[Rfam]
RNA sequence: AUCUUAUCCAGAGAGGUGGAGGGACUGGCCCUAUGAAACCUCGGCAACAGGUUCUUUUGCAGAACACUGUGCCAAUUCCAUCAGAAUCAAUUCUGAACAGAUAAGAU
Numbered sequence: 001a002u003c004u005u006a007u008c009c010a011g012a013g014a015g016g017u018g019g020a021g022g023g024a025c026u027g028g029c030c031c032u033a034u035g036a037a038a039c040c041u042c043g044g045c046a047a048c049a050g051g052u053u054c055u056u057u058u059g060c061a062g063a064a065c066a067c068u069g070u071g072c073c074a075a076u077u078c079c080a081u082c083a084g085a086a087u088c089a090a091u092u093c094u095g096a097a098c099a100g101a102u103a104a105g106a107u
Base pairs, nucleotide, nucleotide: 001107002106003105004104005103006102007101008100013042014041015040016039017038021031022030023029026080027079028078043073044072045071046070048069049068051065052064053063054062077099082095083094084093085092086091

The record is a 107-nucleotide RNA sequence from Paenisporosarcina sp. HGH0030, which matches "SAM riboswitch aptamer (S box leader)" in Rfam. The base pairs follow the family's consensus structure, which is taken from published work. The SAM riboswitch is found upstream of a number of genes which code for proteins involved in methionine or cysteine biosynthesis in Gram-positive bacteria.